RNA sequence: CUGAUUUUUUCUUUGGUUAUCUAGCUGUAUGAGUGCAUUCGACUUUCAUAAAGCUAGGUUACCGAAGCUAAGAGUGG
Numbered sequence: 001c002u003g004a005u006u007u008u009u010u011c012u013u014u015g016g017u018u019a020u021c022u023a024g025c026u027g028u029a030u031g032a033g034u035g036c037a038u039u040c041g042a043c044u045u046u047c048a049u050a051a052a053g054c055u056a057g058g059u060u061a062c063c064g065a066a067g068c069u070a071a072g073a074g075u076g077g
Stems, first nucleotide, its partner, number of pairs: 001077003005073001007071002011067007019059008028050006